[Rfam]
RNA sequence: AUGCUUACUGCAGUACCAUUUAAAGAGCUAUCAUAACUGCUCACUUAUAGCUCUGAAAAUGGCGCUGGAGUCCGCAG
Numbered sequence: 001a002u003g004c005u006u007a008c009u010g011c012a013g014u015a016c017c018a019u020u021u022a023a024a025g026a027g028c029u030a031u032c033a034u035a036a037c038u039g040c041u042c043a044c045u046u047a048u049a050g051c052u053c054u055g056a057a058a059a060u061g062g063c064g065c066u067g068g069a070g071u072c073c074g075c076a077g
Stems, first nucleotide, its partner, number of pairs: 002076003007071003011067003016062006024054008

This 77-nucleotide RNA from Oryzias melastigma belongs to the Rfam family "mir-458 microRNA precursor family". On this family, see Chen et al., Genes Dev 2005: "The developmental miRNA profiles of zebrafish as determined by small RNA cloning". The family's consensus secondary structure was predicted with RNAalifold.